[Rfam]
RNA sequence: AAAGAAUACUUGAUUUCAACUCAUAUAUACCCUGUGAUAUGGACGGGGAGUCUCUACCGAACAGCCGUUAACUGUUUGACUAUGAGUGGACCAGGCGUUGCG
Numbered sequence: 001a002a003a004g005a006a007u008a009c010u011u012g013a014u015u016u017c018a019a020c021u022c023a024u025a026u027a028u029a030c031c032c033u034g035u036g037a038u039a040u041g042g043a044c045g046g047g048g049a050g051u052c053u054c055u056a057c058c059g060a061a062c063a064g065c066c067g068u069u070a071a072c073u074g075u076u077u078g079a080c081u082a083u084g085a086g087u088g089g090a091c092c093a094g095g096c097g098u099u100g101c102g
Stems, first nucleotide, its partner, number of pairs: 019087007030048006058078007
RNA: Purine riboswitch aptamer